[Rfam]
Shown here is an 84-nucleotide RNA sequence from Atractosteus spatula, a member of the family "Small nucleolar RNA SNORD53/SNORD92". Clan: SNORD52 clan. Its family is annotated with RNA processing and nucleolus in the Gene Ontology.

RNA sequence: CUGACAUGAUGAUAUUUCGAGAACGGUUUCGCAGAUUGUGCUGAAGUCAGUCUGAUGUCUCAUUUCUCUUGGCUAUCUGAUCAG
Numbered sequence: 001c002u003g004a005c006a007u008g009a010u011g012a013u014a015u016u017u018c019g020a021g022a023a024c025g026g027u028u029u030c031g032c033a034g035a036u037u038g039u040g041c042u043g044a045a046g047u048c049a050g051u052c053u054g055a056u057g058u059c060u061c062a063u064u065u066c067u068c069u070u071g072g073c074u075a076u077c078u079g080a081u082c083a084g
Stems, first nucleotide, its partner, number of pairs: 001084004